[Rfam]
The family of this 134-nucleotide sequence from Chiloscyllium punctatum is "Small nucleolar RNA SNORA44". For this family Rfam cites "RNomics: an experimental approach that identifies 201 candidates for novel, small, non-messenger RNAs in mouse" (Huttenhofer et al., EMBO J, 2001). The match comes from Rfam's covariance-model search (64 bits). ACA44 is a member of the H/ACA class of snoRNA that guide the sites of modification of uridines to pseudouridines. Pairs were carried over by alignment from the consensus structure, which was predicted with PFOLD.
RNA sequence: UUGCAUGGUAACCAAGAGCUGCAGCUUCACAGUUGGUAGUUGUGGAUUCUCCAACAUCAUGCAAGAAAAUUGGAGAGACUUUGACAGUGUUGGUCCUGUGUUUCCUCUGACUGUCACUUGAUUCUCCUACAUCU
Numbered sequence: 001u002u003g004c005a006u007g008g009u010a011a012c013c014a015a016g017a018g019c020u021g022c023a024g025c026u027u028c029a030c031a032g033u034u035g036g037u038a039g040u041u042g043u044g045g046a047u048u049c050u051c052c053a054a055c056a057u058c059a060u061g062c063a064a065g066a067a068a069a070u071u072g073g074a075g076a077g078a079c080u081u082u083g084a085c086a087g088u089g090u091u092g093g094u095c096c097u098g099u100g101u102u103u104c105c106u107c108u109g110a111c112u113g114u115c116a117c118u119u120g121a122u123u124c125u126c127c128u129a130c131a132u133c134u
Stems, first nucleotide, its partner, number of pairs: 012045002017041006072127006087114002092105002